[Rfam]
RNA sequence: CCACUUAUGAUUCGGGUUUCGAGAUAAUGUAACCGUGACAAUCUGGUUCGUUGUCGACGAAACCUGCAAAAUAAGCGG
Numbered sequence: 001c002c003a004c005u006u007a008u009g010a011u012u013c014g015g016g017u018u019u020c021g022a023g024a025u026a027a028u029g030u031a032a033c034c035g036u037g038a039c040a041a042u043c044u045g046g047u048u049c050g051u052u053g054u055c056g057a058c059g060a061a062a063c064c065u066g067c068a069a070a071a072u073a074a075g076c077g078g
Base pairs, nucleotide, nucleotide: 001078002077004075005074006073013066014065015064016063017062018061019060020059021058031048032047033046034045